[Rfam]
The family of this 112-nucleotide sequence from Pseudomonas oryzihabitans is "Pseudomon-groES RNA". The family's RNA type in Rfam is cis-regulatory element.
RNA sequence: GUAGCGGACACCGCAAGGUUGUCGCCGCAAGGCGAGCAGGUUUCGCGCUCUGUCAUGGAUGGGGCGCACCCGGCGCAGCCGGUUAAAACAAACUGCCGAUGCAGUCAUCGGC
Number, nucleotide and partner (000 for none) at each position: 001g000002u000003a000004g000005c000006g000007g000008a000009c000010a019011c018012c017013g000014c000015a000016a000017g012018g011019u010020u000021g000022u035023c034024g033025c032026c031027g000028c000029a000030a000031g026032g025033c024034g023035a022036g000037c000038a000039g000040g000041u000042u000043u000044c000045g067046c066047g065048c064049u063050c062051u061052g060053u000054c000055a000056u000057g000058g000059a000060u052061g051062g050063g049064g048065c047066g046067c045068a000069c000070c082071c081072g080073g079074c000075g000076c000077a000078g000079c073080c072081g071082g070083u000084u000085a000086a000087a000088a000089c000090a000091a000092a000093c000094u000095g112096c111097c110098g109099a108100u107101g000102c000103a000104g000105u000106c000107a100108u099109c098110g097111g096112c095